Rfam assigns this 75-nucleotide RNA sequence from Branchiostoma floridae to the family "mir-4872 microRNA precursor family". Rfam 15.1 lists 72 matches to the family in 3 species. The organism belongs to Branchiostoma, within Eukaryota. The family's consensus secondary structure was predicted with RNAalifold. A search with the family's covariance model found it, with a score of 72 bits.
[Rfam]
RNA sequence: UCACAUAUAGUGCCGGGGAAACAAAAACUCUGAGUUCCUCUACUUCAGAGUUUUGUUGCCCAGGCUCUCUUUGGG
Numbered sequence: 001u002c003a004c005a006u007a008u009a010g011u012g013c014c015g016g017g018g019a020a021a022c023a024a025a026a027a028c029u030c031u032g033a034g035u036u037c038c039u040c041u042a043c044u045u046c047a048g049a050g051u052u053u054u055g056u057u058g059c060c061c062a063g064g065c066u067c068u069c070u071u072u073g074g075g
Stems, first nucleotide, its partner, number of pairs: 001075002004073002007070001009068002012065003016061002020057003024054010034043002
Dot-bracket structure: ((.((.(.((.(((.((..(((.((((((((((((......)).)))))))))))))..)).))).)).).))))